[Rfam]
RNA: eL15-Euryarchaeota ribosomal protein leader
Organism: Halocatena salina
Nucleotides: 049
Base pairs, nucleotide, nucleotide: 001014002013003012004011005010017044018043024039025038026037027036028035
Number, partner (000 for none) and nucleotide at each position: 001014c002013c003012u004011g005010u006000u007000c008000g009000a010005a011004c012003a013002g014001g015000u016000c017044g018043g019000g020000a021000u022000g023000u024039g025038a026037c027036c028035g029000c030000g031000g032000u033000g034000g035028c036027g037026g038025u039024u040000g041000a042000a043018c044017c045000a046000u047000a048000c049000g